[Rfam]
RNA: Selenocysteine transfer RNA
RNA sequence: GGAGGUGAACGGGGUCUGGUGGCCCCCCUGGUCUUCAAAACCAGCGGCUCGUCGAAGAGGCGAGCGGUGGGUUCGAUUCCCAUCCGCCUCC
Number, nucleotide and partner (000 for none) at each position: 001g091002g090003a089004g088005g087006u086007g085008a000009a083010c000011g026012g025013g024014g023015u022016c021017u000018g000019g000020u000021g016022g015023c014024c013025c012026c011027c000028c044029u043030g042031g041032u040033c000034u000035u000036c000037a000038a000039a000040a032041c031042c030043a029044g028045c000046g000047g065048c064049u063050c062051g061052u000053c000054g000055a000056a000057g000058a000059g000060g000061c051062g050063a049064g048065c047066g000067g000068u082069g081070g080071g079072u000073u000074c000075g000076a000077u000078u000079c071080c070081c069082a068083u009084c000085c007086g006087c005088c004089u003090c002091c001